[Rfam]
RNA sequence: GUGCCUCAAACUUAUGAGUAAGGAAAAUAACGAGCGUUGGUAACGCUUCGCUCUUCUGACAAAUAUUUCAGAAGAAUGUUUUGAAGGCUUCAGGUCGUCCCAGGCUAGUCUACCUACUUUGUAGACCUGCUAGGAGUUAGCGAUCUAGCCU
Numbered sequence: 001g002u003g004c005c006u007c008a009a010a011c012u013u014a015u016g017a018g019u020a021a022g023g024a025a026a027a028u029a030a031c032g033a034g035c036g037u038u039g040g041u042a043a044c045g046c047u048u049c050g051c052u053c054u055u056c057u058g059a060c061a062a063a064u065a066u067u068u069c070a071g072a073a074g075a076a077u078g079u080u081u082u083g084a085a086g087g088c089u090u091c092a093g094g095u096c097g098u099c100c101c102a103g104g105c106u107a108g109u110c111u112a113c114c115u116a117c118u119u120u121g122u123a124g125a126c127c128u129g130c131u132a133g134g135a136g137u138u139a140g141c142g143a144u145c146u147a148g149c150c151u
Base pairs, nucleotide, nucleotide: 004023005022006021008019032053033052034051035050036049039046055072056071057070058069059068085151086150087149088148089147092146093145094144095143096142097141098140100134101133103131104130105129109125110124111123112122113121
RNA: U12 minor spliceosomal RNA